RNA: Purine riboswitch aptamer
Organism: Amphibacillus marinus
Nucleotides: 102
Stems, first nucleotide, its partner, number of pairs: 018088008030048005058078007
Number, partner (000 for none) and nucleotide at each position: 001000c002000a003000u004000u005000a006000u007000u008000a009000u010000a011000g012000u013000a014000a015000g016000c017000a018088c019087c020086u021085c022084u023083g024082u025081a026000u027000a028000u029000c030048c031047u032046c033045g034044a035000u036000a037000a038000u039000a040000a041000g042000g043000u044034u045033c046032g047031a048030g049000a050000g051000u052000u053000u054000c055000u056000a057000c058078c059077g060076g061075g062074a063073g064072a065000c066000c067000a068000u069000u070000a071000a072064u073063u074062u075061c076060c077059u078058g079000a080000c081025u082024a083023u084022a085021g086020a087019g088018g089000c090000g091000g092000a093000a094000u095000a096000a097000c098000u099000g100000u101000g102000u